[Rfam]
RNA sequence: GGUCGUGCAAAGACCGUGAACUGGAAGCGUUGCGGACGGGGGUUCGAUUCCCCCCAGCUCCACCGAAGCCAUUGCGUGGAUGGUUUCGGUGGGGCUGACCUGGUUUCGACGUGGCGACCGAAAGCAAGCGGACGGCCCGAGAGGUGACCGACGUAAUCGGCGCAAAACCACAAACGCCAACCAAGACGUUUAUCACGUCGAGCAGAUGCCUCUGGCAGCCUGA
Numbered sequence: 001g002g003u004c005g006u007g008c009a010a011a012g013a014c015c016g017u018g019a020a021c022u023g024g025a026a027g028c029g030u031u032g033c034g035g036a037c038g039g040g041g042g043u044u045c046g047a048u049u050c051c052c053c054c055c056a057g058c059u060c061c062a063c064c065g066a067a068g069c070c071a072u073u074g075c076g077u078g079g080a081u082g083g084u085u086u087c088g089g090u091g092g093g094g095c096u097g098a099c100c101u102g103g104u105u106u107c108g109a110c111g112u113g114g115c116g117a118c119c120g121a122a123a124g125c126a127a128g129c130g131g132a133c134g135g136c137c138c139g140a141g142a143g144g145u146g147a148c149c150g151a152c153g154u155a156a157u158c159g160g161c162g163c164a165a166a167a168c169c170a171c172a173a174a175c176g177c178c179a180a181c182c183a184a185g186a187c188g189u190u191u192a193u194c195a196c197g198u199c200g201a202g203c204a205g206a207u208g209c210c211u212c213u214g215g216c217a218g219c220c221u222g223a
Base pairs, nucleotide, nucleotide: 001137002136003135004134005133017126018125028116029115030114032112033111034110038054039053040052041051042050055097056096057095058094059093060092061091138153139152
RNA: permuted transfer-messenger RNA